[Rfam]
A member of the RNA family "Acido-Lenti-1 RNA" from Bacteroidales bacterium Barb4, 45 nucleotides long. The source organism's lineage runs through Bacteria, Pseudomonadati, Bacteroidota, Bacteroidia and Bacteroidales.
RNA sequence: CCCGACGUUUCACGUCGGGCUGAAAUCCGGCGUCCUUGCAGGACU
Numbered sequence: 001c002c003c004g005a006c007g008u009u010u011c012a013c014g015u016c017g018g019g020c021u022g023a024a025a026u027c028c029g030g031c032g033u034c035c036u037u038g039c040a041g042g043a044c045u
Base pairs, nucleotide, nucleotide: 001019002018003017004016005015006014007013008012032044033043034042035041036040